[Rfam]
RNA sequence: CCGUUCCGCCUUCCUAUGCAUAUACUUCUUUGAGGGUCUGGCCUGAAGAGGUGUAGGCAUGGGAAACCGGGGCGA
Numbered sequence: 001c002c003g004u005u006c007c008g009c010c011u012u013c014c015u016a017u018g019c020a021u022a023u024a025c026u027u028c029u030u031u032g033a034g035g036g037u038c039u040g041g042c043c044u045g046a047a048g049a050g051g052u053g054u055a056g057g058c059a060u061g062g063g064a065a066a067c068c069g070g071g072g073c074g075a
Stems, first nucleotide, its partner, number of pairs: 011065009021055003025051008

The family of this 75-nucleotide sequence from Sus scrofa is "mir-202 microRNA precursor family".
The base pairs follow the family's consensus structure, which was predicted with RNAalifold.
The literature on the family includes a 2005 paper in Genes Dev by Chen et al., "The developmental miRNA profiles of zebrafish as determined by small RNA cloning".
Its family is annotated with miRNA-mediated post-transcriptional gene silencing and RISC complex in the Gene Ontology.